[Rfam]
Nucleotides: 078
Stems, first nucleotide, its partner, number of pairs: 008069001010067002013064008022056009032045003
Number, partner (000 for none) and nucleotide at each position: 001000a002000c003000u004000c005000c006000g007000u008069g009000u010067a011066g012000g013064a014063u015062a016061u017060c018059a019058u020057c021000a022056u023055a024054u025053a026052c027051u028050g029049u030048a031000a032045g033044u034043u035000u036000g037000c038000u039000a040000u041000a042000a043034g044033a045032c046000a047000c048030u049029a050028c051027a052026g053025u054024a055023u056022a057020g058019a059018u060017g061016a062015u063014g064013u065000a066011c067010u068000a069008c070000c071000c072000u073000g074000g075000g076000u077000g078000u